A member of the RNA family "Bacterial RNase P class A" from Polaribacter marinus, 303 nucleotides long.
A reference for the family is Brown (1999), "The Ribonuclease P Database", Nucleic Acids Res.
By type it is a ribozyme.
It scores 193 bits against the family's covariance model.
The base pairs follow the family's consensus structure, which is taken from published work.
The source organism's lineage runs through Bacteria, Pseudomonadati, Bacteroidota, Flavobacteriaceae and Polaribacter.
[Rfam]
RNA sequence: UUAGCAGACAAAUCUUAUCGACUUGUUUUACAAGUAGGAAAGUCCGGACACCAAAGAGUAAGCAUAGUGGAUAACAUCCAUCCAACGUAAGUUGAGGACAAGUGCAACAGAAAGUAUGUACAGUUAGGCUGUAGUGAAACCAGGUAAACUCUAUGCGGUGCAAUGCCAUGUAUAUUAGAGCUUGAGGGCUACUCGCUCGAUUCUAAAGGGUAGGCAGAUAGAUUCUAAGAGUAAUUUUAGAACUAGAUAAAUGAUAAGAACCUUUUUAAGGAACAGAAUUCGGCUUAUAUGUCUGCUUUUAUU
Numbered sequence: 001u002u003a004g005c006a007g008a009c010a011a012a013u014c015u016u017a018u019c020g021a022c023u024u025g026u027u028u029u030a031c032a033a034g035u036a037g038g039a040a041a042g043u044c045c046g047g048a049c050a051c052c053a054a055a056g057a058g059u060a061a062g063c064a065u066a067g068u069g070g071a072u073a074a075c076a077u078c079c080a081u082c083c084a085a086c087g088u089a090a091g092u093u094g095a096g097g098a099c100a101a102g103u104g105c106a107a108c109a110g111a112a113a114g115u116a117u118g119u120a121c122a123g124u125u126a127g128g129c130u131g132u133a134g135u136g137a138a139a140c141c142a143g144g145u146a147a148a149c150u151c152u153a154u155g156c157g158g159u160g161c162a163a164u165g166c167c168a169u170g171u172a173u174a175u176u177a178g179a180g181c182u183u184g185a186g187g188g189c190u191a192c193u194c195g196c197u198c199g200a201u202u203c204u205a206a207a208g209g210g211u212a213g214g215c216a217g218a219u220a221g222a223u224u225c226u227a228a229g230a231g232u233a234a235u236u237u238u239a240g241a242a243c244u245a246g247a248u249a250a251a252u253g254a255u256a257a258g259a260a261c262c263u264u265u266u267u268a269a270g271g272a273a274c275a276g277a278a279u280u281c282g283g284c285u286u287a288u289a290u291g292u293c294u295g296c297u298u299u300u301a302u303u
Base pairs, nucleotide, nucleotide: 003297004296005295006294007293008292009291010290011288013259014258015257016256017255018254019253021035022034023033024032025031026030040286041285042284044283045282046281047280048279049160050159051158052157058193062156063155064154065153066152067081068080069079070078071077082096083094084093085092086091097151098150102149103148104145105144119133120132121131122130123129124128164216165215166214167213175206176205177204178203179202186198187197188196189195223242224241225240226239227238228237229236230235